Rfam assigns this 129-nucleotide RNA from Roseovarius albus to the family "Y RNA-like". Pairs were carried over by alignment from the consensus structure, which is taken from published work. The source organism's lineage runs through Bacteria, Pseudomonadati, Rhodobacterales, Roseobacteraceae and Roseovarius. About the family: In Deinococcus radiodurans Rsr is tethered via Y RNA to the exoribonuclease PNPase and channels single-stranded RNA into the PNPase cavity. Rsr and Y RNA enhance degradation of structured RNAs by PNPase. This role could be conserved, as Rsr and ncRNAs called YrlA and YrlB (Y RNA like) also associate with PNPase in an evolutionary distant bacterium Salmonella Typhimurium.

[Rfam]
RNA sequence: ACGGCGAAUGCCGAUGGAACUACAGGAAUCAACAGGUCGCGGGUUCGAAUCCCGCCAUCGCACUCAGCGAUGUAGCUCAGUUGGAUAGAGCCGUUGGCAAAUGUUUCAUCACCCCCUUGUCGCCGUGCC
Numbered sequence: 001a002c003g004g005c006g007a008a009u010g011c012c013g014a015u016g017g018a019a020c021u022a023c024a025g026g027a028a029u030c031a032a033c034a035g036g037u038c039g040c041g042g043g044u045u046c047g048a049a050u051c052c053c054g055c056c057a058u059c060g061c062a063c064u065c066a067g068c069g070a071u072g073u074a075g076c077u078c079a080g081u082u083g084g085a086u087a088g089a090g091c092c093g094u095u096g097g098c099a100a101a102u103g104u105u106u107c108a109u110c111a112c113c114c115c116c117u118u119g120u121c122g123c124c125g126u127g128c129c
Stems, first nucleotide, its partner, number of pairs: 002125006013110007023097001032094002039055005056072006075091004
Background
On this family, see Chen et al., Cell 2013: "An RNA degradation machine sculpted by Ro autoantigen and noncoding RNA".